[Rfam]
RNA: Y RNA
Organism: Piliocolobus tephrosceles
RNA sequence: GGCUGGUCCAAGUGCAGUGGUGACACAAAUAAUUGAUCACAACCAGUUACAGAUUUGUUCCUUCUCCACUCCCACUGCUUUACUUGACUAACCUUAA
Numbered sequence: 001g002g003c004u005g006g007u008c009c010a011a012g013u014g015c016a017g018u019g020g021u022g023a024c025a026c027a028a029a030u031a032a033u034u035g036a037u038c039a040c041a042a043c044c045a046g047u048u049a050c051a052g053a054u055u056u057g058u059u060c061c062u063u064c065u066c067c068a069c070u071c072c073c074a075c076u077g078c079u080u081u082a083c084u085u086g087a088c089u090a091a092c093c094u095u096a097a
Base pairs, nucleotide, nucleotide: 001093002092004090005089006088007087008086010085011084014081016076017075018074019073020072022071027059028058031055032054033053034052